[Rfam]
This 30-nucleotide sequence from Clostridium botulinum belongs to the Rfam family "CRISPR RNA direct repeat element".
Rfam links the family to the GO term defense response.
Pairs were carried over by alignment from the consensus structure, which was predicted with WAR.
Lineage of the source: Bacteria > Bacillati > Clostridiaceae > Clostridium > Clostridium botulinum A.
The family has 20 seed sequences and 1,947 matches in Rfam 15.1.
The sequence is in the family's curated seed alignment.
RNA sequence: AUUUAAAUACAUCCUAUGUUAUUGUUCAAU
Numbered sequence: 001a002u003u004u005a006a007a008u009a010c011a012u013c014c015u016a017u018g019u020u021a022u023u024g025u026u027c028a029a030u
Stems, first nucleotide, its partner, number of pairs: 009019004